small nucleolar RNA snoR126: a 99-nucleotide sequence from Zea mays. Rfam links the family to the GO terms RNA processing and nucleolus. The organism belongs to Zea, within Eukaryota. Rfam classes the family as a C/D-box small nucleolar RNA. The family has 4 seed sequences and 423 matches in Rfam 15.1.
Nucleotides: 099
Stems, first nucleotide, its partner, number of pairs: 001098004
Number, partner (000 for none) and nucleotide at each position: 001098u002097g003096g004095c005000u006000a007000u008000g009000g010000u011000g012000a013000c014000a015000c016000a017000a018000a019000u020000g021000u022000u023000c024000g025000u026000u027000u028000c029000u030000c031000g032000a033000u034000g035000a036000u037000a038000u039000u040000a041000g042000u043000u044000g045000u046000g047000u048000c049000a050000g051000a052000a053000g054000a055000a056000c057000u058000u059000g060000a061000u062000u063000u064000a065000u066000u067000c068000a069000a070000g071000g072000u073000u074000a075000u076000g077000a078000g079000c080000u081000c082000u083000g084000u085000g086000c087000g088000u089000g090000u091000c092000u093000g094000a095004g096003c097002c098001a099000g